[Rfam]
RNA sequence: GGCGCAACCCCUCUACUCGGAUCGUCCGGCACGUUCCUGCCGGUGAAGGGAAGAUUUC
Numbered sequence: 001g002g003c004g005c006a007a008c009c010c011c012u013c014u015a016c017u018c019g020g021a022u023c024g025u026c027c028g029g030c031a032c033g034u035u036c037c038u039g040c041c042g043g044u045g046a047a048g049g050g051a052a053g054a055u056u057u058c
Base pairs, nucleotide, nucleotide: 009050010049011048012047014045015044026043027042028041029040030039031038
RNA: msiK RNA